[Rfam]
RNA sequence: CCACUUUGCACUACAAGUGCACUGCAAGUGCACUUUACUUGCAGUGCACUUGUAGUGCAAAGUGG
Numbered sequence: 001c002c003a004c005u006u007u008g009c010a011c012u013a014c015a016a017g018u019g020c021a022c023u024g025c026a027a028g029u030g031c032a033c034u035u036u037a038c039u040u041g042c043a044g045u046g047c048a049c050u051u052g053u054a055g056u057g058c059a060a061a062g063u064g065g
Base pairs, nucleotide, nucleotide: 001065002064003063004062006061007059008058009057010056011055012054013053014052015051016050019047021045022044023043024042025041026040027039
Dot-bracket structure: ((((.(((((((((((..(.(((((((...........))))))).)..)))))))))).)))))
Rfam assigns this 65-nucleotide sequence from Aquarana catesbeiana to the family "mir-33 microRNA precursor family". A search with the family's covariance model found it, with a score of 53 bits. The family has 73 seed sequences and 1,467 matches in Rfam 15.1. For this family Rfam cites "Direct sequencing and expression analysis of a large number of miRNAs in Aedes aegypti and a multi-species survey of novel mosquito miRNAs" (Li et al., BMC Genomics, 2009).